[Rfam]
RNA sequence: CAACGCAAGCGGGGUUCGGUGCAAUUCCGAACCGGCGGUGAAAGCCCGCGACCCGGUCGAAGCCAUCGACCGGUUGACCCGAUGGAAUUUCGGGGCCGACGGUUAAAGUCCGGAAGGGAGUUUGCGUGU
Numbered sequence: 001c002a003a004c005g006c007a008a009g010c011g012g013g014g015u016u017c018g019g020u021g022c023a024a025u026u027c028c029g030a031a032c033c034g035g036c037g038g039u040g041a042a043a044g045c046c047c048g049c050g051a052c053c054c055g056g057u058c059g060a061a062g063c064c065a066u067c068g069a070c071c072g073g074u075u076g077a078c079c080c081g082a083u084g085g086a087a088u089u090u091c092g093g094g095g096c097c098g099a100c101g102g103u104u105a106a107a108g109u110c111c112g113g114a115a116g117g118g119a120g121u122u123u124g125c126g127u128g129u
Stems, first nucleotide, its partner, number of pairs: 003127008017029003031109002033098002035049004044096002053073002078094005100112003
RNA: FMN riboswitch aptamer (RFN element)
Organism: Streptomyces davaonensis